[Rfam]
RNA: c-di-AMP riboswitch aptamer (ydaO/yuaA leader)
Organism: Streptomyces sp. 150FB
RNA sequence: AAUUCCCACCCACCCAUACGUCGGCAGGAGCGGGGGACCCAGGUAGUACGCCGAUCCGUAACGUCCGGACGGCUUGGGGUGAAGUCGCGCAGCACACGCGGCCGGGCAACUCCAGCCCGAACCCGACAGCUCACCUCGCAGGCGCCGGAGAGGAAAACC
Numbered sequence: 001a002a003u004u005c006c007c008a009c010c011c012a013c014c015c016a017u018a019c020g021u022c023g024g025c026a027g028g029a030g031c032g033g034g035g036g037a038c039c040c041a042g043g044u045a046g047u048a049c050g051c052c053g054a055u056c057c058g059u060a061a062c063g064u065c066c067g068g069a070c071g072g073c074u075u076g077g078g079g080u081g082a083a084g085u086c087g088c089g090c091a092g093c094a095c096a097c098g099c100g101g102c103c104g105g106g107c108a109a110c111u112c113c114a115g116c117c118c119g120a121a122c123c124c125g126a127c128a129g130c131u132c133a134c135c136u137c138g139c140a141g142g143c144g145c146c147g148g149a150g151a152g153g154a155a156a157a158c159c
Base pairs, nucleotide, nucleotide: 004029005028006027030139031138032137033136034135035134040076041075042074043073044072077124078123079122085101086100087099088098104118105117106116107115
Dot-bracket structure: ...(((....................)))((((((....(((((...........................)))))(((.....((((.........))))..((((.......))))...))).........))))))....................